Alphaproteobacterial ar14: a 134-nucleotide RNA sequence from Thalassovita mediterranea. Gene Ontology term of the family: biological process involved in symbiotic interaction. The family's RNA type in Rfam is small RNA. Pairs were carried over by alignment from the consensus structure. On this family, see del Val et al., RNA Biol 2012: "A survey of sRNA families in alpha-proteobacteria".
RNA sequence: AAAUCAGCGGCGUCCUCUCUCCUCCUCCCUGAGGGCGCCGCACUCAGAUACGACAGACCUCUCUCCUCCUCCCUGAGGUCUUUCGUUGUCAAGAGCGGCACCUCCUCUCCUCCUCCCUGGAGGUGCCGCACCUG
Numbered sequence: 001a002a003a004u005c006a007g008c009g010g011c012g013u014c015c016u017c018u019c020u021c022c023u024c025c026u027c028c029c030u031g032a033g034g035g036c037g038c039c040g041c042a043c044u045c046a047g048a049u050a051c052g053a054c055a056g057a058c059c060u061c062u063c064u065c066c067u068c069c070u071c072c073c074u075g076a077g078g079u080c081u082u083u084c085g086u087u088g089u090c091a092a093g094a095g096c097g098g099c100a101c102c103u104c105c106u107c108u109c110c111u112c113c114u115c116c117c118u119g120g121a122g123g124u125g126c127c128g129c130a131c132c133u134g
Base pairs, nucleotide, nucleotide: 007041008040009039011037012036013035014034015033016032017031052084053083055081056080057079058078059077060076061075095129096128097127098126099125100124101123102122103121104120105119